[Rfam]
RNA sequence: GUCAACCACCCCUCCUUAAAAGGAGAGGCUUGAGCGAUCAGGCCGGUUGACCAGCCUCAGUGAUCCGAAAGGAGAACUACGUUGCAGUUAGGUUACACGACCCGCCCCGGGGUGCUUCCUCAGCUCCGGGCUCCGGAAACGGCAGAAGCAGACAAGCUUUGGGUAAGCACGAAACGGUCUGCCGUUGCAAUGCCGGACUGCACCAUUGGCGAGGGGAAUUCAAC
Numbered sequence: 001g002u003c004a005a006c007c008a009c010c011c012c013u014c015c016u017u018a019a020a021a022g023g024a025g026a027g028g029c030u031u032g033a034g035c036g037a038u039c040a041g042g043c044c045g046g047u048u049g050a051c052c053a054g055c056c057u058c059a060g061u062g063a064u065c066c067g068a069a070a071g072g073a074g075a076a077c078u079a080c081g082u083u084g085c086a087g088u089u090a091g092g093u094u095a096c097a098c099g100a101c102c103c104g105c106c107c108c109g110g111g112g113u114g115c116u117u118c119c120u121c122a123g124c125u126c127c128g129g130g131c132u133c134c135g136g137a138a139a140c141g142g143c144a145g146a147a148g149c150a151g152a153c154a155a156g157c158u159u160u161g162g163g164u165a166a167g168c169a170c171g172a173a174a175c176g177g178u179c180u181g182c183c184g185u186u187g188c189a190a191u192g193c194c195g196g197a198c199u200g201c202a203c204c205a206u207u208g209g210c211g212a213g214g215g216g217a218a219u220u221c222a223a224c
Stems, first nucleotide, its partner, number of pairs: 001051007010028002012025002015022002029042004054210003059078003081204001083202007091194001102136002106130008114220001116218006138186009
RNA: HNH endonuclease-associated RNA and ORF (HEARO) RNA
Organism: Sutterella megalosphaeroides